[Rfam]
The family of this 67-nucleotide RNA from Bombyx mori is "mir-2774 microRNA precursor family". The family's consensus secondary structure was predicted with RNAalifold. It scores 66 bits against the family's covariance model.
RNA sequence: ACAAUAUUAGGACCAUCGUUCUAUCGAGUAAAAUAACCCGCUCAAUGAAAGAUCUUCCCUUUAUCUU
Numbered sequence: 001a002c003a004a005u006a007u008u009a010g011g012a013c014c015a016u017c018g019u020u021c022u023a024u025c026g027a028g029u030a031a032a033a034u035a036a037c038c039c040g041c042u043c044a045a046u047g048a049a050a051g052a053u054c055u056u057c058c059c060u061u062u063a064u065c066u067u
Base pairs, nucleotide, nucleotide: 004064005063006062010058011057012056015053016052017051020049022047023046024045026043027042028041029040